The record is a 69-nucleotide RNA from Mesocricetus auratus, which matches "Small nucleolar RNA U2-30" in Rfam. A search with the family's covariance model found it, with a score of 71 bits. The family's consensus secondary structure is taken from published work.

RNA sequence: GAGUAAUGAUGAAAAAUUGUACUACUGAACUUUAAAAAUAUGAAGAAUGCUACACUUGACCUGAGCUCA
Numbered sequence: 001g002a003g004u005a006a007u008g009a010u011g012a013a014a015a016a017u018u019g020u021a022c023u024a025c026u027g028a029a030c031u032u033u034a035a036a037a038a039u040a041u042g043a044a045g046a047a048u049g050c051u052a053c054a055c056u057u058g059a060c061c062u063g064a065g066c067u068c069a
Stems, first nucleotide, its partner, number of pairs: 001068004013033003017028002